[Rfam]
RNA sequence: GUGCAUUCUUAAACCCUCUUGGCAGUUUCGUUCUCAACGCUUCCAAGAUAUGAGUGAAUGCUAUAGAAAUUGGCAGGGGAGUCCAAAGGGCUGUGCUUCCUCCUGUGGCUCAGUCUUAUUUCAGACCUGCGACACCU
Numbered sequence: 001g002u003g004c005a006u007u008c009u010u011a012a013a014c015c016c017u018c019u020u021g022g023c024a025g026u027u028u029c030g031u032u033c034u035c036a037a038c039g040c041u042u043c044c045a046a047g048a049u050a051u052g053a054g055u056g057a058a059u060g061c062u063a064u065a066g067a068a069a070u071u072g073g074c075a076g077g078g079g080a081g082u083c084c085a086a087a088g089g090g091c092u093g094u095g096c097u098u099c100c101u102c103c104u105g106u107g108g109c110u111c112a113g114u115c116u117u118a119u120u121u122c123a124g125a126c127c128u129g130c131g132a133c134a135c136c137u
Stems, first nucleotide, its partner, number of pairs: 003061004008054004017048006024041003065137002071132001073130005087117007095109002100105001
A member of the RNA family "Small nucleolar RNA SNORA14" from Erinaceus europaeus, 137 nucleotides long. By type it is an H/ACA-box small nucleolar RNA. Lineage of the source: Eukaryota > Amniota > Erinaceidae > Erinaceinae > Erinaceus.